This 145-nucleotide RNA from Cytobacillus solani belongs to the Rfam family "FMN riboswitch aptamer (RFN element)".
Its family is annotated with FMN binding in the Gene Ontology.
From the family's description: The RFN element is a highly conserved domain that is found frequently in the 5'-untranslated regions of prokaryotic mRNAs that encode for flavin mononucleotide (FMN) biosynthesis and transport proteins.
Pairs were carried over by alignment from the consensus structure, which is taken from published work.
The match comes from Rfam's covariance-model search (121 bits).
RNA sequence: GGAUUCCUUCGGGGCUGGGUGAAAUUCCCAACCGGCGGUGAUGAGGGUGACCUCUUAGUCCGUGACCCGUUUUCAAAUGUUGGAAACGGUGGAUUUGGUGAAAUUCCAAAGCCGACAGUUAAAGUCUGGAUGGGAGAAGGAAUGA
Number, nucleotide and partner (000 for none) at each position: 001g000002g000003a143004u142005u141006c140007c139008u138009u137010c136011g000012g000013g000014g000015c000016u000017g029018g028019g027020u000021g000022a000023a000024a000025u000026u000027c019028c018029c017030a000031a125032c124033c114034g113035g063036c062037g061038g060039u000040g000041a000042u000043g000044a000045g000046g000047g000048u000049g000050a000051c000052c000053u000054c000055u000056u000057a000058g112059u111060c038061c037062g036063u035064g000065a000066c000067c089068c088069g000070u000071u000072u000073u000074c000075a000076a000077a000078u000079g000080u000081u000082g000083g000084a000085a000086a000087c000088g068089g067090u000091g000092g000093a000094u110095u109096u108097g107098g106099u000100g000101a000102a000103a000104u000105u000106c098107c097108a096109a095110a094111g059112c058113c034114g033115a000116c128117a127118g126119u000120u000121a000122a000123a000124g032125u031126c118127u117128g116129g000130a000131u000132g000133g000134g000135a000136g010137a009138a008139g007140g006141a005142a004143u003144g000145a000